[Rfam]
RNA sequence: AGAAACUGAACUCUACACAAUUUAUGCCGAUGAAACAUUGUGUAGAGU
Numbered sequence: 001a002g003a004a005a006c007u008g009a010a011c012u013c014u015a016c017a018c019a020a021u022u023u024a025u026g027c028c029g030a031u032g033a034a035a036c037a038u039u040g041u042g043u044a045g046a047g048u
Stems, first nucleotide, its partner, number of pairs: 011047005017041003
Rfam assigns this 48-nucleotide RNA sequence from Lachnospiraceae bacterium A4 to the family "uup RNA".